[Rfam]
This 84-nucleotide sequence from Haemophilus influenzae belongs to the Rfam family "sRNA-Xcc1". Rfam classes the family as a small RNA. It is one of the family's seed sequences. Taxonomically the source falls in Haemophilus influenzae (Bacteria, Pseudomonadota, Pasteurellales, Pasteurellaceae).

RNA sequence: GUUCGACAGUGCGACUAAUACAAUACCGAAAGGGAAUAAGUCCGCUGGAUUCUUGACCAGUUUUGAGCUGUCGAACGCCCGAUU
Numbered sequence: 001g002u003u004c005g006a007c008a009g010u011g012c013g014a015c016u017a018a019u020a021c022a023a024u025a026c027c028g029a030a031a032g033g034g035a036a037u038a039a040g041u042c043c044g045c046u047g048g049a050u051u052c053u054u055g056a057c058c059a060g061u062u063u064u065g066a067g068c069u070g071u072c073g074a075a076c077g078c079c080c081g082a083u084u
Stems, first nucleotide, its partner, number of pairs: 001076009013042003016038002026033002044061005
Source information:
The base pairs follow the family's consensus structure, which was predicted with RNAalifold.